[Rfam]
Nucleotides: 114
Base pairs, nucleotide, nucleotide: 006084007083008082009081010080015031017030018029019028020027033065034064037062038061039060040058041057042056043055044054045053046052086097087096088095089094
Number, partner (000 for none) and nucleotide at each position: 001000u002000g003000c004000c005000u006084g007083c008082a009081u010080u011000a012000a013000g014000a015031g016000u017030u018029g019028g020027g021000a022000a023000u024000c025000a026000a027020u028019c029018c030017a031015u032000g033065c034064c035000a036000a037062c038061c039060u040058g041057c042056u043055u044054u045053u046052u047000a048000c049000a050000u051000g052046a053045a054044a055043a056042g057041g058040u059000a060039a061038g062037g063000u064034g065033g066000a067000c068000g069000a070000c071000u072000g073000a074000u075000c076000a077000g078000u079000c080010g081009a082008u083007g084006u085000g086097g087096c088095c089094c090000g091000c092000a093000g094089g095088g096087g097086c098000a099000a100000u101000a102000c103000g104000a105000a106000c107000a108000a109000c110000c111000c112000g113000c114000a